[Rfam]
RNA sequence: CUUGGUUCAGCCCGACCCCCCGGGGCUGAACCGUCGGCGACCCCCGUCCCUCCCCCCUGGCGGGGGUCGCCUCUA
Numbered sequence: 001c002u003u004g005g006u007u008c009a010g011c012c013c014g015a016c017c018c019c020c021c022g023g024g025g026c027u028g029a030a031c032c033g034u035c036g037g038c039g040a041c042c043c044c045c046g047u048c049c050c051u052c053c054c055c056c057c058u059g060g061c062g063g064g065g066g067u068c069g070c071c072u073c074u075a
Stems, first nucleotide, its partner, number of pairs: 003033011036071013

Shown here is a 75-nucleotide RNA sequence from Amycolatopsis acidicola, a member of the family "6C RNA".
Lineage of the source: Bacteria > Bacillati > Actinomycetes > Pseudonocardiales > Amycolatopsis.
The match comes from Rfam's covariance-model search (72 bits).
Rfam classes the family as a cis-regulatory element.